[Rfam]
RNA sequence: GAGUCUGCAUUGCCUAAUUCGGACAAUUGCUCCGAAGCGGAGGAACCAGUUUAAUCGGGGCUUACUGUUGUGAACUUAGAAAUUCUAAGCGAGCCAACAGGGGACAAUCUCUCAGUCCUCGCCCGUCAGCUAACUCCGUAGGCACGUUGAGAGUUUGG
Dot-bracket structure: ..........((((...((((((.......))))))((((((....(.........)(((.....((((..........................))))..((((.........))))...))).........)))))).))))..............
This 158-nucleotide RNA from Cyanobacteria bacterium FACHB-DQ100 belongs to the Rfam family "c-di-AMP riboswitch aptamer (ydaO/yuaA leader)". The organism belongs to Cyanobacteriota, within Bacteria. A search with the family's covariance model found it, with a score of 63 bits.